[Rfam]
Shown here is an 81-nucleotide sequence from Roseiterribacter gracilis, a member of the family "Makes More Granules Regulator RNA (mmgR)". The family is grouped with related families in Rfam's "suhB sRNA clan". The pairing is the family consensus, mapped onto this sequence. Its family is annotated with protein binding, response to nitrogen compound and DNA-templated transcription, termination in the Gene Ontology. The family's RNA type in Rfam is small RNA.

RNA sequence: AUCCGACGCCUUUCUUGGGCGUUUCCUCCCUAAACUAUUCAGGCCGCCAGCCUCGUGCCGGCGGCCUUUCUUUUUGCCCGC
Numbered sequence: 001a002u003c004c005g006a007c008g009c010c011u012u013u014c015u016u017g018g019g020c021g022u023u024u025c026c027u028c029c030c031u032a033a034a035c036u037a038u039u040c041a042g043g044c045c046g047c048c049a050g051c052c053u054c055g056u057g058c059c060g061g062c063g064g065c066c067u068u069u070c071u072u073u074u075u076g077c078c079c080g081c
Base pairs, nucleotide, nucleotide: 008020009019010018011017041067042066043065044064045063046062047061048060